[Rfam]
RNA sequence: AGGUCAUUUCAAAGAGCUUAUGGAACCAAAGGAGCCUAACUCUGUGACCUAAGAGUGAAGUUCUCCAUAGGAUAAUAGACAUUCCAUAGUGCUAUGUUUUUCUGUGGAGAUAAAAGA
Numbered sequence: 001a002g003g004u005c006a007u008u009u010c011a012a013a014g015a016g017c018u019u020a021u022g023g024a025a026c027c028a029a030a031g032g033a034g035c036c037u038a039a040c041u042c043u044g045u046g047a048c049c050u051a052a053g054a055g056u057g058a059a060g061u062u063c064u065c066c067a068u069a070g071g072a073u074a075a076u077a078g079a080c081a082u083u084c085c086a087u088a089g090u091g092c093u094a095u096g097u098u099u100u101u102c103u104g105u106g107g108a109g110a111u112a113a114a115a116g117a
Stems, first nucleotide, its partner, number of pairs: 002049006014037001016035003019030001021029001022027001062110005069103004075095004080091004
Dot-bracket structure: .((((((......(.((((.((....).))..))).)......))))))............(((((..((((..((((.((((....))))))))....))))..))))).......
Rfam assigns this 117-nucleotide RNA sequence from Molossus molossus to the family "Small nucleolar RNA SNORA25". A search with the family's covariance model found it, with a score of 91 bits. The family's consensus secondary structure was predicted with RNAfold. The organism belongs to Molossus, within Eukaryota. About the family: ACA25 is a member of the H/ACA class of snoRNA that guide the sites of modification of uridines to pseudouridines. By type it is an H/ACA-box small nucleolar RNA.